[Rfam]
RNA: Small nucleolar RNA SNORA17
RNA sequence: CUUGCCCCUAGAGGCGUUACAGACGUGUGUCCCAUUACAUGUUUGUGUCAUUAGGUGGCAUAGAGAAAACUGGCUGUGUCUACACUCGGUGCUCUGACUUGUGGGUACUAAGAAUGAUUAGCAGCCAGACACU
Numbered sequence: 001c002u003u004g005c006c007c008c009u010a011g012a013g014g015c016g017u018u019a020c021a022g023a024c025g026u027g028u029g030u031c032c033c034a035u036u037a038c039a040u041g042u043u044u045g046u047g048u049c050a051u052u053a054g055g056u057g058g059c060a061u062a063g064a065g066a067a068a069a070c071u072g073g074c075u076g077u078g079u080c081u082a083c084a085c086u087c088g089g090u091g092c093u094c095u096g097a098c099u100u101g102u103g104g105g106u107a108c109u110a111a112g113a114a115u116g117a118u119u120a121g122c123a124g125c126c127a128g129a130c131a132c133u
Stems, first nucleotide, its partner, number of pairs: 003060004007055005013049003019046004024041006070128008083116002086113002090107005